[Rfam]
RNA: Bacteroides-1 RNA
RNA sequence: GUGCAAAUCGCCUGAUACACUACUUGUAGGUAUGUGAAUAUAUAUGAGUCAGCAAUAUGCCUCCCUGGCAUAACAGGAAGA
Numbered sequence: 001g002u003g004c005a006a007a008u009c010g011c012c013u014g015a016u017a018c019a020c021u022a023c024u025u026g027u028a029g030g031u032a033u034g035u036g037a038a039u040a041u042a043u044a045u046g047a048g049u050c051a052g053c054a055a056u057a058u059g060c061c062u063c064c065c066u067g068g069c070a071u072a073a074c075a076g077g078a079a080g081a
Stems, first nucleotide, its partner, number of pairs: 020052002024047005030041004056072006
Dot-bracket structure: ...................((..(((((.((((....)))).)))))...))...((((((.....)))))).........